RNA sequence: GGCCACAGUUGUGGCUAUAGGGUUCAGUUAUCUAAAGCCCCGAUUUUUCGGGGUUUUUUGUUAUCUGACUACAGAAUAACUGGGCUUUACGCCCUUUUUUU
Numbered sequence: 001g002g003c004c005a006c007a008g009u010u011g012u013g014g015c016u017a018u019a020g021g022g023u024u025c026a027g028u029u030a031u032c033u034a035a036a037g038c039c040c041c042g043a044u045u046u047u048u049c050g051g052g053g054u055u056u057u058u059u060g061u062u063a064u065c066u067g068a069c070u071a072c073a074g075a076a077u078a079a080c081u082g083g084g085c086u087u088u089a090c091g092c093c094c095u096u097u098u099u100u101u
Stems, first nucleotide, its partner, number of pairs: 034057009082094004